[Rfam]
RNA sequence: AGCUGGUCUGAGUGCAGUGGCAUUUAUAACUAAUCGACCACAACCAGUUACAGAUUCCUUUGUUCCUUCUCCACCCCCAUUGCUUCACUUGCCCAGCCUAAA
Numbered sequence: 001a002g003c004u005g006g007u008c009u010g011a012g013u014g015c016a017g018u019g020g021c022a023u024u025u026a027u028a029a030c031u032a033a034u035c036g037a038c039c040a041c042a043a044c045c046a047g048u049u050a051c052a053g054a055u056u057c058c059u060u061u062g063u064u065c066c067u068u069c070u071c072c073a074c075c076c077c078c079a080u081u082g083c084u085u086c087a088c089u090u091g092c093c094c095a096g097c098c099u100a101a102a
Base pairs, nucleotide, nucleotide: 002097003096004095005094006093008091010090011089014086016081017080018079019078020077028064029063030062032060033059